[Rfam]
RNA sequence: UCACUGCUGUGCUCUAUGGCUUUCUAUUCCUAUGUGAUCUUAUGUAUUAUCUCAUGUAGGGUUCAAAGCCAUUGGGUACAGAGUGGA
Numbered sequence: 001u002c003a004c005u006g007c008u009g010u011g012c013u014c015u016a017u018g019g020c021u022u023u024c025u026a027u028u029c030c031u032a033u034g035u036g037a038u039c040u041u042a043u044g045u046a047u048u049a050u051c052u053c054a055u056g057u058a059g060g061g062u063u064c065a066a067a068g069c070c071a072u073u074g075g076g077u078a079c080a081g082a083g084u085g086g087a
Stems, first nucleotide, its partner, number of pairs: 002086001005083001007081008016072008026063001028061010
RNA: mir-135 microRNA precursor family
Organism: Lepisosteus oculatus